[Rfam]
RNA sequence: CCGUCCACGCACCGGAACAGGCCUGGUGUCCUCGGCCCGCACCGAUACCCUGACGUGGUGCGUCCGCCGGCGUGGACGCAAAGCCGACAGCCGUCGCACCCCAGGGAGCUCCAGCAUG
Number, nucleotide and partner (000 for none) at each position: 001c000002c000003g000004u000005c000006c000007a000008c000009g000010c000011a000012c000013c000014g000015g000016a000017a000018c000019a000020g000021g000022c000023c000024u000025g000026g000027u000028g000029u000030c000031c000032u000033c000034g000035g000036c000037c000038c000039g000040c000041a000042c000043c000044g000045a000046u000047a000048c000049c000050c000051u000052g000053a000054c000055g000056u000057g000058g000059u080060g079061c078062g077063u000064c075065c074066g073067c072068c000069g000070g000071c000072g067073u066074g065075g064076a000077c062078g061079c060080a059081a000082a000083g097084c096085c000086g095087a094088c093089a000090g000091c000092c000093g088094u087095c086096g084097c083098a000099c000100c000101c000102c000103a000104g000105g000106g000107a000108g000109c000110u000111c000112c000113a000114g000115c000116a000117u000118g000
The family of this 118-nucleotide RNA from Streptomyces chumphonensis is "Streptomyces-metH RNA".
The base pairs follow the family's consensus structure, which is taken from published work.